[Rfam]
RNA sequence: ACGGACGCCGAACUCUGUCACCGGCCGGGGCCCCAAGACGACCGCAUGACAGAGGCGGGGGACCCACCAUCGGGCGCCAGGGCGCGUCCUAGGGGUGAAGCCGAGCAGUCCUUCGGGAUUGCACGGCCGGGUGAUUUCUCCCACCCGAACCCGACAGCUGACCUCGAAGGCGUUCAAGGAGAGGUACU
Numbered sequence: 001a002c003g004g005a006c007g008c009c010g011a012a013c014u015c016u017g018u019c020a021c022c023g024g025c026c027g028g029g030g031c032c033c034c035a036a037g038a039c040g041a042c043c044g045c046a047u048g049a050c051a052g053a054g055g056c057g058g059g060g061g062a063c064c065c066a067c068c069a070u071c072g073g074g075c076g077c078c079a080g081g082g083c084g085c086g087u088c089c090u091a092g093g094g095g096u097g098a099a100g101c102c103g104a105g106c107a108g109u110c111c112u113u114c115g116g117g118a119u120u121g122c123a124c125g126g127c128c129g130g131g132u133g134a135u136u137u138c139u140c141c142c143a144c145c146c147g148a149a150c151c152c153g154a155c156a157g158c159u160g161a162c163c164u165c166g167a168a169g170g171c172g173u174u175c176a177a178g179g180a181g182a183g184g185u186a187c188u
Stems, first nucleotide, its partner, number of pairs: 006172004013054008056166005065092001093152003101126003129146004